[Rfam]
Shown here is an 84-nucleotide RNA sequence, a member of the family "c-di-GMP-II-GCG riboswitch aptamer".
A reference for the family is Weinberg et al. (2017), "Bioinformatic analysis of riboswitch structures uncovers variant classes with altered ligand specificity", Proc Natl Acad Sci U S A.
Nucleotides: 084
Stems, first nucleotide, its partner, number of pairs: 003083003007079005013060003022054006029047001038072002041067004
Number, partner (000 for none) and nucleotide at each position: 001000u002000c003083u004082u005081u006000c007079g008078c009077g010076g011075g012000a013060g014059g015058c016000g017000a018000c019000g020000a021000g022054g023053c024052g025051c026050g027049g028000c029047c030000u031000g032000g033000a034000c035000u036000c037000c038072g039071g040000c041067c042066g043065c044064c045000g046000a047029g048000a049027c050026c051025g052024c053023g054022c055000u056000g057000a058015g059014c060013c061000a062000c063000u064044g065043g066042c067041g068000a069000g070000c071039c072038c073000g074000a075011c076010c077009c078008g079007c080000u081005g082004g083003g084000a